[Rfam]
RNA: skipping-rope RNA
Organism: Dielma fastidiosa
RNA sequence: GGUAUUUGAAGUAGAGAAUGUGCUGCUACGCACCGUAAGGUCAAAAGAAAUGUGGAAUUGGCACUUCCACCAAAUACC
Numbered sequence: 001g002g003u004a005u006u007u008g009a010a011g012u013a014g015a016g017a018a019u020g021u022g023c024u025g026c027u028a029c030g031c032a033c034c035g036u037a038a039g040g041u042c043a044a045a046a047g048a049a050a051u052g053u054g055g056a057a058u059u060g061g062c063a064c065u066u067c068c069a070c071c072a073a074a075u076a077c078c
Stems, first nucleotide, its partner, number of pairs: 001078008011029004020064005031047001032041003052070005